A member of the RNA family "Vault RNA" from Amphiprion ocellaris, 101 nucleotides long.
The family's consensus secondary structure is taken from published work.
About the family: This family of RNAs are found as part of the enigmatic vault ribonucleoprotein complex.
For this family Rfam cites "Evolution of Vault RNAs" (Stadler et al., Mol Biol Evol, 2009).
It is annotated as a non-coding RNA gene.

RNA sequence: GCACUGGUUUAGCUCAGUGGUUACUUUUCUGCAACAGUCUACUUGAUUUUGUGGUUCAAUCCCUCCUCAGGGUAAAACCACAGACUCUGUCCAGUGUCUUC
Numbered sequence: 001g002c003a004c005u006g007g008u009u010u011a012g013c014u015c016a017g018u019g020g021u022u023a024c025u026u027u028u029c030u031g032c033a034a035c036a037g038u039c040u041a042c043u044u045g046a047u048u049u050u051g052u053g054g055u056u057c058a059a060u061c062c063c064u065c066c067u068c069a070g071g072g073u074a075a076a077a078c079c080a081c082a083g084a085c086u087c088u089g090u091c092c093a094g095u096g097u098c099u100u101c
Stems, first nucleotide, its partner, number of pairs: 002096006012085001014083001017081004025077004